[Rfam]
RNA sequence: GGAUGCUCUGAAGACCUGCUCACUAGGCCACGCACGGAGAACACUGGUUUCUCAUGGGCCUCGCGCCCGCCUAGGGGAAAGUCCCCGGACCACCGGCAGAGAGUGCCGGGCGCUCCCGCGCCCUCGCCCGACCGUAGCUCACGCUUUACGCCGCUAAGAUGCCUCCGGGCUGAGCGGGUGAUUGCGGGGCGGGCUCUCGUCACGGCCAUAGAUACGCAGGUAGUGCGCAGGCGCACUAACAGAACGGGGCUCACUCUCAGGCCAUC
Numbered sequence: 001g002g003a004u005g006c007u008c009u010g011a012a013g014a015c016c017u018g019c020u021c022a023c024u025a026g027g028c029c030a031c032g033c034a035c036g037g038a039g040a041a042c043a044c045u046g047g048u049u050u051c052u053c054a055u056g057g058g059c060c061u062c063g064c065g066c067c068c069g070c071c072u073a074g075g076g077g078a079a080a081g082u083c084c085c086c087g088g089a090c091c092a093c094c095g096g097c098a099g100a101g102a103g104u105g106c107c108g109g110g111c112g113c114u115c116c117c118g119c120g121c122c123c124u125c126g127c128c129c130g131a132c133c134g135u136a137g138c139u140c141a142c143g144c145u146u147u148a149c150g151c152c153g154c155u156a157a158g159a160u161g162c163c164u165c166c167g168g169g170c171u172g173a174g175c176g177g178g179u180g181a182u183u184g185c186g187g188g189g190c191g192g193g194c195u196c197u198c199g200u201c202a203c204g205g206c207c208a209u210a211g212a213u214a215c216g217c218a219g220g221u222a223g224u225g226c227g228c229a230g231g232c233g234c235a236c237u238a239a240c241a242g243a244a245c246g247g248g249g250c251u252c253a254c255u256c257u258c259a260g261g262c263c264a265u266c
Base pairs, nucleotide, nucleotide: 002266003265004264005263007261008260009259010258011257014221015220016219017218018217019216023074024073025072026071027070028069037053038052039051040050041049080251081250083249084248085247086246095107096106097105098104108123109122110121111120112119113118125193127191132187133186134185135184136183137182139181140180141179142178151177152176153175154174161170162169163168223236224235225234226233227232
A member of the RNA family "RNase MRP" from Galbula dea, 266 nucleotides long. Rfam 15.1 lists 3,510 matches to the family in 2,315 species. On this family, see Schmitt et al., FASEB J 1993: "Secondary structure of RNase MRP RNA as predicted by phylogenetic comparison". Pairs were carried over by alignment from the consensus structure, which is taken from published work. It is annotated as a ribozyme.